Overview:
This 119-nucleotide sequence from cf. Phormidesmis sp. LEGE 11477 belongs to the Rfam family "Guanidine-I riboswitch aptamer". Pairs were carried over by alignment from the consensus structure. This family represents a conserved RNA structure found upstream of the ykkC and yxkD genes in Bacillus subtilis and related genes in other bacteria.
RNA sequence: AAUAUUGGCUUCUAGGGUUCCGAUCUCACUCAGUUUUGUGAUGAGGUGUCUGGUCCGAGAGAGGCAGCCUGCGCGGUCUUUGAUUGCUGGGUUCACGGCGGGAUAAAAGCCCGGGAGGA
Numbered sequence: 001a002a003u004a005u006u007g008g009c010u011u012c013u014a015g016g017g018u019u020c021c022g023a024u025c026u027c028a029c030u031c032a033g034u035u036u037u038g039u040g041a042u043g044a045g046g047u048g049u050c051u052g053g054u055c056c057g058a059g060a061g062a063g064g065c066a067g068c069c070u071g072c073g074c075g076g077u078c079u080u081u082g083a084u085u086g087c088u089g090g091g092u093u094c095a096c097g098g099c100g101g102g103a104u105a106a107a108a109g110c111c112c113g114g115g116a117g118g119a
Stems, first nucleotide, its partner, number of pairs: 008065005015056002020053002022050001023047006067092005072086002094114001096117001100112003